[Rfam]
RNA sequence: UCGCGACGUCGCGACUGGCGUACAGGUGGAUCACCACCGGGGAGCGACGCGCUGUGCUGACGACGGGUCGUUCGCCUGGGCCCGCUCG
Numbered sequence: 001u002c003g004c005g006a007c008g009u010c011g012c013g014a015c016u017g018g019c020g021u022a023c024a025g026g027u028g029g030a031u032c033a034c035c036a037c038c039g040g041g042g043a044g045c046g047a048c049g050c051g052c053u054g055u056g057c058u059g060a061c062g063a064c065g066g067g068u069c070g071u072u073c074g075c076c077u078g079g080g081c082c083c084g085c086u087c088g
Stems, first nucleotide, its partner, number of pairs: 003052003007049006015041002017076004026037004065083005
The record is an 88-nucleotide RNA sequence from Isoptericola variabilis, which matches "ZMP/ZTP riboswitch aptamer (pfl RNA motif)" in Rfam. Gene Ontology terms of the family: regulation of purine nucleotide biosynthetic process and one-carbon metabolic process. Lineage of the source: Bacteria > Bacillati > Promicromonosporaceae > Isoptericola > Isoptericola variabilis.